[Rfam]
A member of the RNA family "Glycine riboswitch aptamer" from Acetobacter garciniae, 90 nucleotides long. The source organism's lineage runs through Bacteria, Pseudomonadati, Pseudomonadota, Acetobacterales and Acetobacter. From the family's description: This family represents the bacterial glycine riboswitch.
RNA sequence: AUGUCGCGCAGAGGGAGAGACCGGCCUUGUGUCGGCGCCGAAGGAGCAACCGCCCCGGAAACUCUCAGGCAAAAGGACCCUGCGCGCAAA
Numbered sequence: 001a002u003g004u005c006g007c008g009c010a011g012a013g014g015g016a017g018a019g020a021c022c023g024g025c026c027u028u029g030u031g032u033c034g035g036c037g038c039c040g041a042a043g044g045a046g047c048a049a050c051c052g053c054c055c056c057g058g059a060a061a062c063u064c065u066c067a068g069g070c071a072a073a074a075g076g077a078c079c080c081u082g083c084g085c086g087c088a089a090a
Base pairs, nucleotide, nucleotide: 006085007084008083009082010081011080013079014078021035022034023033024032037070038069039068040066041065044064045063046062050058051057
The base pairs follow the family's consensus structure.